This 111-nucleotide sequence from Borborobacter arsenicus belongs to the Rfam family "Rhizobiales sRNA Atu_At1". It is annotated as a small RNA.
RNA sequence: CUGCAGGUCGUGUCAACCGGGCAUGAUGGUACGGUGAACAGGAAGUCUUUUUCCCGGUUUCUCUUCCUGGCCAAUGAAUUGGCAGACGAGUGCCUAUGUCCCAUCCGGAUC
Numbered sequence: 001c002u003g004c005a006g007g008u009c010g011u012g013u014c015a016a017c018c019g020g021g022c023a024u025g026a027u028g029g030u031a032c033g034g035u036g037a038a039c040a041g042g043a044a045g046u047c048u049u050u051u052u053c054c055c056g057g058u059u060u061c062u063c064u065u066c067c068u069g070g071c072c073a074a075u076g077a078a079u080u081g082g083c084a085g086a087c088g089a090g091u092g093c094c095u096a097u098g099u100c101c102c103a104u105c106c107g108g109a110u111c
Stems, first nucleotide, its partner, number of pairs: 006111004011023004025105005033094004039069007070083003

A search with the family's covariance model found it, with a score of 81 bits.